[Rfam]
RNA sequence: GGUACUAAAAGUAGAGAAUGUGCUGCUACGCACCCUAUGGGUCAAAAGAAAUGCUGGAUUGGCACACAGCUUAGUACC
Numbered sequence: 001g002g003u004a005c006u007a008a009a010a011g012u013a014g015a016g017a018a019u020g021u022g023c024u025g026c027u028a029c030g031c032a033c034c035c036u037a038u039g040g041g042u043c044a045a046a047a048g049a050a051a052u053g054c055u056g057g058a059u060u061g062g063c064a065c066a067c068a069g070c071u072u073a074g075u076a077c078c
Stems, first nucleotide, its partner, number of pairs: 001078008011029004020065005031048001032042004053070004

Shown here is a 78-nucleotide sequence, a member of the family "skipping-rope RNA". Rfam's curators put it in the seed alignment.